mir-548 microRNA precursor family: an 84-nucleotide RNA sequence from Pan troglodytes. The family has 11 seed sequences and 3,009 matches in Rfam 15.1. The match comes from Rfam's covariance-model search (92 bits).
[Rfam]
RNA sequence: UAUUAGGUUGGUGCAACAGUAAUUGUGGCUUUUGCCAUUAAAAGUGAUGACAAAAACCACAAUUACUGUUGCACCAACGUAAUA
Numbered sequence: 001u002a003u004u005a006g007g008u009u010g011g012u013g014c015a016a017c018a019g020u021a022a023u024u025g026u027g028g029c030u031u032u033u034g035c036c037a038u039u040a041a042a043a044g045u046g047a048u049g050a051c052a053a054a055a056a057c058c059a060c061a062a063u064u065a066c067u068g069u070u071g072c073a074c075c076a077a078c079g080u081a082a083u084a
Base pairs, nucleotide, nucleotide: 001084002083003082004081005080007078008077009076010075011074012073013072014071015070016069017068018067019066020065021064022063023062024061025060026059027058028057030055031054032053033052034051036049037048038047039046040045